Shown here is a 203-nucleotide RNA from Sakesphorus luctuosus, a member of the family "Small nucleolar RNA SNORA74". The family is grouped with related families in Rfam's "SNORA74 clan". The match comes from Rfam's covariance-model search (96 bits). On this family, see Bortolin and Kiss, RNA 1998: "Human U19 intron-encoded snoRNA is processed from a long primary transcript that possesses little potential for protein coding". U19 belongs to the H/ACA class of snoRNAs. snoRNAs bind a number of proteins (including dyskerin, Gar1p and Nop10p in the case of the H/ACA class) to form snoRNP complexes. Gene Ontology terms of the family: nucleolus and RNA processing. The source organism's lineage runs through Eukaryota, Opisthokonta, Chordata, Aves and Sakesphorus.
RNA sequence: GCCAGUGGUAGUCAGCUGUCCAGAGCAACACUGUGCCUGUGAUAGUGUUACACUGCUGGGAGAUAAAGAUCAGGCAUUUCUUCUGGCUGCUGCUGUCCCCGUUCUGGAGGCAGCUGAUGCCAAAAAGAAGUGUCAUUGUGCUUCCCUGAGAGCGCACUGAAGGUUCCCUUUCCCUCUUUAGUGCUAGUCUGGAAGCAGACACA
Numbered sequence: 001g002c003c004a005g006u007g008g009u010a011g012u013c014a015g016c017u018g019u020c021c022a023g024a025g026c027a028a029c030a031c032u033g034u035g036c037c038u039g040u041g042a043u044a045g046u047g048u049u050a051c052a053c054u055g056c057u058g059g060g061a062g063a064u065a066a067a068g069a070u071c072a073g074g075c076a077u078u079u080c081u082u083c084u085g086g087c088u089g090c091u092g093c094u095g096u097c098c099c100c101g102u103u104c105u106g107g108a109g110g111c112a113g114c115u116g117a118u119g120c121c122a123a124a125a126a127g128a129a130g131u132g133u134c135a136u137u138g139u140g141c142u143u144c145c146c147u148g149a150g151a152g153c154g155c156a157c158u159g160a161a162g163g164u165u166c167c168c169u170u171u172c173c174c175u176c177u178u179u180a181g182u183g184c185u186a187g188u189c190u191g192g193a194a195g196c197a198g199a200c201a202c203a
Stems, first nucleotide, its partner, number of pairs: 002059008011051002015046006021039003069136002072133001074131002077128001084125001086120002090116001093113003097109001099107002139197007154184003158180006